[Rfam]
RNA sequence: GAAGGCGCACCGUCAGGUGCGCGUGAUGCGGGAGAAGUCAGCCGAGGCUGUAGUAGGCCAGCGCGGCCGCGCUGGCUGAAGGGC
Numbered sequence: 001g002a003a004g005g006c007g008c009a010c011c012g013u014c015a016g017g018u019g020c021g022c023g024u025g026a027u028g029c030g031g032g033a034g035a036a037g038u039c040a041g042c043c044g045a046g047g048c049u050g051u052a053g054u055a056g057g058c059c060a061g062c063g064c065g066g067c068c069g070c071g072c073u074g075g076c077u078g079a080a081g082g083g084c
Stems, first nucleotide, its partner, number of pairs: 002024001005022007038045002047084003056077006
RNA: Group II catalytic intron D1-D4-1
Organism: Sulfobacillus acidophilus